[Rfam]
RNA sequence: UUAUUUGCCGAUGCAACAUCAUCAAGAUUCUCAUAUUCAAAAAACUUAGGGGGAAGAUUUUUAGAAACAUAUAUUUUGCUCCAGAUGAUUUCUAUGUGAAUCUUGAUAAUGCUGCAGCUGCAAGUAA
Numbered sequence: 001u002u003a004u005u006u007g008c009c010g011a012u013g014c015a016a017c018a019u020c021a022u023c024a025a026g027a028u029u030c031u032c033a034u035a036u037u038c039a040a041a042a043a044a045c046u047u048a049g050g051g052g053g054a055a056g057a058u059u060u061u062u063a064g065a066a067a068c069a070u071a072u073a074u075u076u077u078g079c080u081c082c083a084g085a086u087g088a089u090u091u092c093u094a095u096g097u098g099a100a101u102c103u104u105g106a107u108a109a110u111g112c113u114g115c116a117g118c119u120g121c122a123a124g125u126a127a
Stems, first nucleotide, its partner, number of pairs: 010118001012116004017111003021107010032096004
Dot-bracket structure: .........(.((((.(((.((((((((((.((((.........................................................)))).)))))))))).))).)))).).........
RNA: mir-172 microRNA precursor family